Small nucleolar RNA SNORA23: a 180-nucleotide RNA sequence from Labrus bergylta. The organism belongs to Labrus, within Eukaryota. Gene Ontology terms of the family: nucleolus and RNA processing. The match comes from Rfam's covariance-model search (90 bits). Rfam's curators write: The members of this family belong to the H/ACA class of snoRNAs which are thought to guide the sites of modification of uridines to pseudouridines. This family includes human snoRNA ACA23 (SNORA23) and mouse snoMBI-1. ACA23 is predicted to guide the pseudouridylation of residue U3737 and U4331 of 28S rRNA.
RNA sequence: GGUGAACGGUGUGCACAGUGUCAGUCUGUGUUAUGUGUUGUUGCUGGACUGUGUUUUUCAGUCUUAGCAGCAGUGCUCACUCCACACCUACAGCCAUAGAACAACAGGAGAUCAUAGUACUGGCUCUUGACGUCUUACUGACACCUCACCAUUAGUCAGCCUCCAAACUCUCCAACAAUA
Numbered sequence: 001g002g003u004g005a006a007c008g009g010u011g012u013g014c015a016c017a018g019u020g021u022c023a024g025u026c027u028g029u030g031u032u033a034u035g036u037g038u039u040g041u042u043g044c045u046g047g048a049c050u051g052u053g054u055u056u057u058u059c060a061g062u063c064u065u066a067g068c069a070g071c072a073g074u075g076c077u078c079a080c081u082c083c084a085c086a087c088c089u090a091c092a093g094c095c096a097u098a099g100a101a102c103a104a105c106a107g108g109a110g111a112u113c114a115u116a117g118u119a120c121u122g123g124c125u126c127u128u129g130a131c132g133u134c135u136u137a138c139u140g141a142c143a144c145c146u147c148a149c150c151a152u153u154a155g156u157c158a159g160c161c162u163c164c165a166a167a168c169u170c171u172c173c174a175a176c177a178a179u180a
Stems, first nucleotide, its partner, number of pairs: 013091001015089001030080002035077001036075006043068003046064002050060002107173005120159006127151001129145001132142003